The family of this 172-nucleotide RNA sequence from Paludibaculum fermentans is "Group II catalytic intron D1-D4-3".
Nucleotides: 172
Stems, first nucleotide, its partner, number of pairs: 001016001005012002028172001030170003035165001040159004045154001048150003064146004073139003078134006087113003092107004
Number, partner (000 for none) and nucleotide at each position: 001016g002000g003000c004000a005012c006011c007000g008000c009000g010000a011006g012005g013000g014000c015000g016001c017000g018000u019000g020000g021000g022000g023000a024000a025000g026000a027000a028172g029000u030170c031169g032168g033000a034000g035165g036000c037000g038000a039000a040159c041158u042157g043156c044000a045154g046000c047000a048150c049149c050148a051000a052000a053000c054000g055000a056000a057000a058000g059000u060000g061000a062000a063000g064146c065145c066144c067143c068000g069000u070000g071000a072000g073139g074138c075137c076000g077000g078134c079133c080132u081131g082130g083129u084000g085000g086000a087113g088112g089111c090000a091000a092107g093106c094105g095104u096000g097000c098000u099000c100000g101000g102000a103000a104095a105094c106093g107092c108000g109000a110000c111089g112088c113087c114000c115000u116000a117000u118000a119000u120000u121000c122000a123000a124000c125000c126000g127000g128000u129083g130082u131081c132080a133079g134078g135000a136000c137075g138074g139073u140000g141000u142000g143067g144066g145065g146064g147000a148050u149049g150048g151000g152000a153000g154045c155000g156043g157042c158041a159040g160000g161000a162000c163000a164000u165035u166000g167000a168032u169031u170030g171000u172028u

The organism belongs to Paludibaculum, within Bacteria. The base pairs follow the family's consensus structure.